[Rfam]
RNA sequence: UAAGCUGGCAAGAACCUUUUGAAUCACUCCACUACUUGAUUCAAAAGGUUCUAACAAA
Number, nucleotide and partner (000 for none) at each position: 001u000002a000003a000004g000005c000006u000007g000008g055009c000010a000011a052012g051013a050014a049015c048016c047017u046018u045019u044020u043021g042022a041023a040024u039025c038026a037027c000028u000029c000030c000031a000032c000033u000034a000035c000036u000037u026038g025039a024040u023041u022042c021043a020044a019045a018046a017047g016048g015049u014050u013051c012052u011053a000054a000055c008056a000057a000058a000
RNA: Plastid-ccsA-ndhD-1 3UTR RNA
Organism: Hibiscus syriacus